A member of the RNA family "Betaproteobacteria toxic small RNA" from Verminephrobacter eiseniae, 63 nucleotides long. The base pairs follow the family's consensus structure, which was predicted with WAR.
Nucleotides: 063
Stems, first nucleotide, its partner, number of pairs: 008028006033056008
Number, partner (000 for none) and nucleotide at each position: 001000u002000g003000u004000c005000u006000c007000c008028u009027c010026c011025a012024u013023c014000u015000c016000c017000u018000c019000a020000a021000a022000g023013g024012a025011u026010g027009g028008a029000u030000u031000g032000a033056g034055c035054c036053c037052c038051g039050g040049a041000c042000c043000g044000c045000a046000a047000g048000g049040u050039c051038c052037g053036g054035g055034g056033c057000u058000c059000u060000u061000u062000u063000u